[Rfam]
RNA sequence: CUUCAGCGAACCCACCCACACCGGGGAGUCGGGUUCGCGGCCCUGCCCGUACACCGCCAGCAGCGCCCGGGCUUC
Numbered sequence: 001c002u003u004c005a006g007c008g009a010a011c012c013c014a015c016c017c018a019c020a021c022c023g024g025g026g027a028g029u030c031g032g033g034u035u036c037g038c039g040g041c042c043c044u045g046c047c048c049g050u051a052c053a054c055c056g057c058c059a060g061c062a063g064c065g066c067c068c069g070g071g072c073u074u075c
Stems, first nucleotide, its partner, number of pairs: 015025003034071003038065002043060003047056001049054001